The record is an 83-nucleotide sequence from Flavobacterium faecale, which matches "Flavo-1 RNA" in Rfam. A search with the family's covariance model found it, with a score of 74 bits.
RNA sequence: CUCUAGCCCCGAUAGAAGUGGAAAUCCUUGUGGCGGCAGACAUCUACGCCGACACAAGAUUGAAACGGAUAGCGGGAAAUAGC
Number, nucleotide and partner (000 for none) at each position: 001c000002u000003c000004u000005a000006g000007c000008c000009c075010c074011g073012a000013u071014a070015g000016a000017a000018g066019u065020g000021g000022a000023a061024a060025u059026c058027c000028u000029u056030g055031u054032g053033g000034c051035g050036g049037c000038a000039g000040a000041c000042a000043u000044c000045u000046a000047c000048g000049c036050c035051g034052a000053c032054a031055c030056a029057a000058g026059a025060u024061u023062g000063a000064a000065a019066c018067g000068g000069a000070u014071a013072g000073c011074g010075g009076g000077a000078a000079a000080u000081a000082g000083c000

Source information:
Rfam 15.1 lists 7,497 matches to the family in 411 species. NCBI's taxonomy places the organism under Bacteria, Pseudomonadati, Bacteroidota, Flavobacteriales, Flavobacterium.